Overview: Rfam assigns this 108-nucleotide RNA sequence from Desulfobaculum bizertense to the family "TPP riboswitch aptamer (THI element)". The family's consensus secondary structure is taken from published work. Rfam links the family to the GO term thiamine pyrophosphate binding. NCBI's taxonomy places the organism under Bacteria, Desulfovibrionia, Desulfovibrionales, Desulfobaculum, Desulfobaculum bizertense. It scores 74 bits against the family's covariance model.
RNA sequence: ACCAGACGCUGGGGGAGCCAGAAAACUGGCUGAGAGGGAGAUGUAUGUCUCCGACCCUUGGAACCUGACGCGGUCAAGACCGCCGUAGGAAAGCGUUGGAUAUGACGU
Dot-bracket structure: .....(((((((((..(((((....)))))......(((((......)))))..)))).....((((..((((......))))..))))..)))))............
Numbered sequence: 001a002c003c004a005g006a007c008g009c010u011g012g013g014g015g016a017g018c019c020a021g022a023a024a025a026c027u028g029g030c031u032g033a034g035a036g037g038g039a040g041a042u043g044u045a046u047g048u049c050u051c052c053g054a055c056c057c058u059u060g061g062a063a064c065c066u067g068a069c070g071c072g073g074u075c076a077a078g079a080c081c082g083c084c085g086u087a088g089g090a091a092a093g094c095g096u097u098g099g100a101u102a103u104g105a106c107g108u
Stems, first nucleotide, its partner, number of pairs: 006096005011058004017030005037052005064089004070083004